[Rfam]
Source information
The family of this 111-nucleotide RNA from Cohnella rhizosphaerae is "Guanidine-I riboswitch aptamer". About the family: This family represents a conserved RNA structure found upstream of the ykkC and yxkD genes in Bacillus subtilis and related genes in other bacteria. The function of this family is unclear although it has been suggested that it may function to switch on efflux pumps and detoxification systems in response to harmful environmental molecules. It scores 70 bits against the family's covariance model. A reference for the family is Barrick et al. (2004), "New RNA motifs suggest an expanded scope for riboswitches in bacterial genetic control", Proc Natl Acad Sci U S A.
RNA sequence: GGAUUCGUCCUCUAGGGUUCCGGGGCGGCUUCGGCCGGCUGUCUGGUCCAAGGGGAGGGCGCGCCCUGCCGAGUGCGGCAGGCGUCACGGAGGGACAAAAGCCCGGGAGUA
Dot-bracket structure: ......((((((..((...(((((.(((......))).))..).)).)).....)))))).(((.(((((......)))))))).(.[...(((.......))).)..]..